This 71-nucleotide RNA from Sulfitobacter sp. HI0023 belongs to the Rfam family "L2-Alphaproteobacteria ribosomal protein leader". It scores 60 bits against the family's covariance model. Pairs were carried over by alignment from the consensus structure, which is taken from published work. For this family Rfam cites "Discovery of 20 novel ribosomal leader candidates in bacteria and archaea" (Eckert and Weinberg, BMC Microbiol, 2020). The family's RNA type in Rfam is cis-regulatory leader.
[Rfam]
Nucleotides: 071
Stems, first nucleotide, its partner, number of pairs: 001018004006014003029048007
Number, partner (000 for none) and nucleotide at each position: 001018g002017g003016g004015g005000a006014c007013c008012u009000u010000c011000g012008g013007g014006g015004c016003c017002c018001u019000u020000c021000a022000u023000a024000c025000c026000a027000u028000a029048g030047g031046c032045g033044g034043g035042g036000g037000c038000g039000u040000g041000c042035c043034c044033u045032c046031g047030u048029c049000g050000u051000c052000a053000g054000c055000u056000a057000a058000a059000c060000g061000g062000a063000a064000g065000a066000c067000a068000g069000a070000c071000a